Rfam assigns this 39-nucleotide sequence from Rhabdobacter roseus to the family "DUF805b RNA".
[Rfam]
RNA sequence: ACGGAGGUUGCCGAAAAUCCGCUACUAACAGAGUAGGUG
Numbered sequence: 001a002c003g004g005a006g007g008u009u010g011c012c013g014a015a016a017a018u019c020c021g022c023u024a025c026u027a028a029c030a031g032a033g034u035a036g037g038u039g
Base pairs, nucleotide, nucleotide: 002021003020004019005018010038011037012036